[Rfam]
RNA sequence: UCUGAUCUAUGAUGACUAAAAAAAAAAGAUUGAUGACUGUUGGAUGAAGCUUGCGGAUAUGGGACUGAGAUCAGCC
Number, nucleotide and partner (000 for none) at each position: 001u000002c074003u073004g072005a071006u000007c000008u000009a000010u000011g000012a000013u000014g000015a000016c000017u000018a000019a000020a000021a000022a000023a000024a000025a000026a000027a000028g000029a000030u000031u000032g000033a000034u000035g000036a000037c000038u000039g000040u000041u000042g000043g000044a000045u000046g000047a000048a000049g000050c000051u000052u000053g000054c000055g000056g000057a000058u000059a000060u000061g000062g000063g000064a000065c000066u000067g000068a000069g000070a000071u005072c004073a003074g002075c000076c000